[Rfam]
RNA sequence: UUGAAGUUUCAUCUAUCAAUAGAUAAGACUUCGGUAUUAGUGUAGACGAGUUUUUGAAAGUAAAGGAGCAAUAACUAAUUUCUUGUUUUCCCACGAGAAUUGGUAGGGCUCCUUU
Dot-bracket structure: .......((.((......)).))......................................((((((((..((...(..(((.(........).)))..)...))..))))))))
Numbered sequence: 001u002u003g004a005a006g007u008u009u010c011a012u013c014u015a016u017c018a019a020u021a022g023a024u025a026a027g028a029c030u031u032c033g034g035u036a037u038u039a040g041u042g043u044a045g046a047c048g049a050g051u052u053u054u055u056g057a058a059a060g061u062a063a064a065g066g067a068g069c070a071a072u073a074a075c076u077a078a079u080u081u082c083u084u085g086u087u088u089u090c091c092c093a094c095g096a097g098a099a100u101u102g103g104u105a106g107g108g109c110u111c112c113u114u115u
Stems, first nucleotide, its partner, number of pairs: 008023002011020002062115008072105002077100001080097003084093001
This 115-nucleotide sequence from Momordica charantia belongs to the Rfam family "Plastid-psbA-1 3UTR RNA". A search with the family's covariance model found it, with a score of 86 bits. Clan: Plastid-psbA 3UTR RNA clan. Lineage of the source: Eukaryota > Streptophytina > Pentapetalae > Cucurbitales > Momordica.